[Rfam]
RNA: Archaeal large subunit ribosomal RNA, nucleotides 10 to 564
RNA sequence: UACUCAAGUCUAGAUAGUGGAUGGCUCGGUUCGAGAAGCCGAUGAAGGACGUGGUAAGCUGCGAUAUGCUUGGGCGAGGUGCAUGCAGCCUUAGAGCCCAAGAUUUCCUAAUGCGACUUCGUAGGUCGCUUCGGCGAUCUGGCCCGUCAGGGUCGGGAACGCGGUGAACUGAAACAUCUAAGUAGCCGCAGGAAAAUAAAGAAACAUUCGAUUCCCUUAGUAGCGGCGAGCGGAAGGGGAAUUAGCGCAAACUGAACGCCUUGAAGUGAUUCAAGGUGGAUGUGGUUCGCCCGUCUUUGGAACCGACUUUCUCAGGUGAACUCUGCUGGAAUGCAGGACCAUAGAGAGUGACAGUCUCGUAACCUACAGAAAGAACGUUCUUUGACGUGUGCAUGAGUACCAUGGGUUGGAAAUCCCGUGGGAAAACGGAAGGCACAUUCUUCCAACGCUAAAUACUUCUCGAGUCCGAUAGCGUACUAAGUACCGUGAGGGAAAGCUGAAAAGUACCCCUAGAAAGGGGGUUAAAAGAGCCUCAAACUAUCUAGUGUUAGGCUA
Numbered sequence: 001u002a003c004u005c006a007a008g009u010c011u012a013g014a015u016a017g018u019g020g021a022u023g024g025c026u027c028g029g030u031u032c033g034a035g036a037a038g039c040c041g042a043u044g045a046a047g048g049a050c051g052u053g054g055u056a057a058g059c060u061g062c063g064a065u066a067u068g069c070u071u072g073g074g075c076g077a078g079g080u081g082c083a084u085g086c087a088g089c090c091u092u093a094g095a096g097c098c099c100a101a102g103a104u105u106u107c108c109u110a111a112u113g114c115g116a117c118u119u120c121g122u123a124g125g126u127c128g129c130u131u132c133g134g135c136g137a138u139c140u141g142g143c144c145c146g147u148c149a150g151g152g153u154c155g156g157g158a159a160c161g162c163g164g165u166g167a168a169c170u171g172a173a174a175c176a177u178c179u180a181a182g183u184a185g186c187c188g189c190a191g192g193a194a195a196a197u198a199a200a201g202a203a204a205c206a207u208u209c210g211a212u213u214c215c216c217u218u219a220g221u222a223g224c225g226g227c228g229a230g231c232g233g234a235a236g237g238g239g240a241a242u243u244a245g246c247g248c249a250a251a252c253u254g255a256a257c258g259c260c261u262u263g264a265a266g267u268g269a270u271u272c273a274a275g276g277u278g279g280a281u282g283u284g285g286u287u288c289g290c291c292c293g294u295c296u297u298u299g300g301a302a303c304c305g306a307c308u309u310u311c312u313c314a315g316g317u318g319a320a321c322u323c324u325g326c327u328g329g330a331a332u333g334c335a336g337g338a339c340c341a342u343a344g345a346g347a348g349u350g351a352c353a354g355u356c357u358c359g360u361a362a363c364c365u366a367c368a369g370a371a372a373g374a375a376c377g378u379u380c381u382u383u384g385a386c387g388u389g390u391g392c393a394u395g396a397g398u399a400c401c402a403u404g405g406g407u408u409g410g411a412a413a414u415c416c417c418g419u420g421g422g423a424a425a426a427c428g429g430a431a432g433g434c435a436c437a438u439u440c441u442u443c444c445a446a447c448g449c450u451a452a453a454u455a456c457u458u459c460u461c462g463a464g465u466c467c468g469a470u471a472g473c474g475u476a477c478u479a480a481g482u483a484c485c486g487u488g489a490g491g492g493a494a495a496g497c498u499g500a501a502a503a504g505u506a507c508c509c510c511u512a513g514a515a516a517g518g519g520g521g522u523u524a525a526a527a528g529a530g531c532c533u534c535a536a537a538c539u540a541u542c543u544a545g546u547g548u549u550a551g552g553c554u555a
Base pairs, nucleotide, nucleotide: 007549008548010545011544012543013542014541015540016539017538023532024497025496028467029466030464031463032462033461034460035459037457038456046109047108048107049106050063051062052061069102070101071100072099073098074097078090079089080088113122114121115120142153143152144151145150160191161189162188163187164186165185171178172177201209202208213240214239215238216237217236223231224230244450245449246448247447252285253284254283262273263272264271265270292387293386294385300380301379302378303377315364316363317362321337323336324335325334326333340344346358347357348356400421401420402419403418404417405416406415428444429443430442431441432440484491485490